[Rfam]
RNA sequence: CCUGCGGUCAGACGGAAAGACCCCGUGCACCUUUACUAUAGCUUCACACUGGCAUUCGUGUCGGCAUGUGUAGGAUAGGUGGUAGGCUUUGAAGCGCAGGCGUCAGCUUGCGUGGAGCCAUCCUUGAAAUACCACCCUUAUCGUCAUGACUGUCUAACCGCGGCCCUUGUAGCAGGGUCCGGGACAGUGUGUGGUGGGUAGUUUGACUGGGGCGGUCGCCUCCCAAAGAGUAACGGAGGCGCGCGAAGGUAGGCUCAGAACGGUCGGAAAUCGUUCGGCGAGUGCAAUGGCAUAAGCCUGCCUGACUGCGAGACUGACACGUCGAGCAGAGACGAAAGUCGGCCAUAGUGAUCCGGUGGUCCCUCGUGGAAGGGCCAUCGCUCAACGGAUAAAAGGUACGCCGGGGAUAACAGGCUGAUGAUGCCCAAGAGUCCAUAUCGACGGCAUCGUUUGGCACCUCGAUGUCGACUCAUCACAUCCUGGGGCUGGAGAAGGUCCCAAGGGUUCGGCUGUUCGCCGAUUAAAGUGGUACGUGAGUUGGGUUCAGAACGUCGUGAGACAGUUCGGUCCCUAUCUGCCGUGGGUGUA
Numbered sequence: 001c002c003u004g005c006g007g008u009c010a011g012a013c014g015g016a017a018a019g020a021c022c023c024c025g026u027g028c029a030c031c032u033u034u035a036c037u038a039u040a041g042c043u044u045c046a047c048a049c050u051g052g053c054a055u056u057c058g059u060g061u062c063g064g065c066a067u068g069u070g071u072a073g074g075a076u077a078g079g080u081g082g083u084a085g086g087c088u089u090u091g092a093a094g095c096g097c098a099g100g101c102g103u104c105a106g107c108u109u110g111c112g113u114g115g116a117g118c119c120a121u122c123c124u125u126g127a128a129a130u131a132c133c134a135c136c137c138u139u140a141u142c143g144u145c146a147u148g149a150c151u152g153u154c155u156a157a158c159c160g161c162g163g164c165c166c167u168u169g170u171a172g173c174a175g176g177g178u179c180c181g182g183g184a185c186a187g188u189g190u191g192u193g194g195u196g197g198g199u200a201g202u203u204u205g206a207c208u209g210g211g212g213c214g215g216u217c218g219c220c221u222c223c224c225a226a227a228g229a230g231u232a233a234c235g236g237a238g239g240c241g242c243g244c245g246a247a248g249g250u251a252g253g254c255u256c257a258g259a260a261c262g263g264u265c266g267g268a269a270a271u272c273g274u275u276c277g278g279c280g281a282g283u284g285c286a287a288u289g290g291c292a293u294a295a296g297c298c299u300g301c302c303u304g305a306c307u308g309c310g311a312g313a314c315u316g317a318c319a320c321g322u323c324g325a326g327c328a329g330a331g332a333c334g335a336a337a338g339u340c341g342g343c344c345a346u347a348g349u350g351a352u353c354c355g356g357u358g359g360u361c362c363c364u365c366g367u368g369g370a371a372g373g374g375c376c377a378u379c380g381c382u383c384a385a386c387g388g389a390u391a392a393a394a395g396g397u398a399c400g401c402c403g404g405g406g407a408u409a410a411c412a413g414g415c416u417g418a419u420g421a422u423g424c425c426c427a428a429g430a431g432u433c434c435a436u437a438u439c440g441a442c443g444g445c446a447u448c449g450u451u452u453g454g455c456a457c458c459u460c461g462a463u464g465u466c467g468a469c470u471c472a473u474c475a476c477a478u479c480c481u482g483g484g485g486c487u488g489g490a491g492a493a494g495g496u497c498c499c500a501a502g503g504g505u506u507c508g509g510c511u512g513u514u515c516g517c518c519g520a521u522u523a524a525a526g527u528g529g530u531a532c533g534u535g536a537g538u539u540g541g542g543u544u545c546a547g548a549a550c551g552u553c554g555u556g557a558g559a560c561a562g563u564u565c566g567g568u569c570c571c572u573a574u575c576u577g578c579c580g581u582g583g584g585u586g587u588a
Stems, first nucleotide, its partner, number of pairs: 001584008010576003014571002022405004027401002029397005035202004042194002045191004051154004056149005062143003066139001068137001078136005085119003094113008158182003162179006205217004218240006241386001243343002249301006255281002258276006282291002306329004312323003331340003354380007362373002414455003418452001419449007429439002466541001467539004471533001472530005479504002482499006506520005547565004551560003
A member of the RNA family "Bacterial large subunit ribosomal RNA" from Methylobrevis albus, 588 nucleotides of a longer RNA. The match comes from Rfam's covariance-model search (2721 bits). The family is grouped with related families in Rfam's "LSU clan".